[Rfam]
RNA sequence: CCCUUGGUGAAGAGUCGCCGAUUGUGGCGGCCUGCUCAGGACGAAUGAUCUGAGCUAGCCAAGGGGGUUUU
Numbered sequence: 001c002c003c004u005u006g007g008u009g010a011a012g013a014g015u016c017g018c019c020g021a022u023u024g025u026g027g028c029g030g031c032c033u034g035c036u037c038a039g040g041a042c043g044a045a046u047g048a049u050c051u052g053a054g055c056u057a058g059c060c061a062a063g064g065g066g067g068u069u070u071u
Stems, first nucleotide, its partner, number of pairs: 001065008014031006034055007